[Rfam]
RNA sequence: UCCAGCUACGGAGACAUGGUCCCGGGCACGAUAGCCGGGAAGAUCGUGGGAGGUGUCUGCUCUCUUUCUGGCGUGCUGGUGAUAGCUCUACCCGUCCCUGUCAUCGUGUCCAAC
Number, nucleotide and partner (000 for none) at each position: 001u113002c000003c000004a000005g110006c000007u108008a107009c106010g105011g104012a000013g102014a101015c100016a099017u000018g097019g096020u000021c094022c000023c000024g000025g000026g000027c000028a000029c000030g000031a000032u000033a000034g000035c000036c000037g077038g076039g000040a074041a000042g000043a000044u000045c000046g000047u000048g000049g063050g062051a061052g000053g000054u000055g000056u000057c000058u000059g000060c000061u051062c050063u049064c000065u000066u000067u000068c000069u000070g000071g000072c000073g000074u040075g000076c038077u037078g000079g000080u000081g000082a000083u000084a000085g000086c000087u000088c000089u000090a000091c000092c000093c000094g021095u000096c019097c018098c000099u016100g015101u014102c013103a000104u011105c010106g009107u008108g007109u000110c005111c000112a000113a001114c000
RNA: Potassium channel RNA editing signal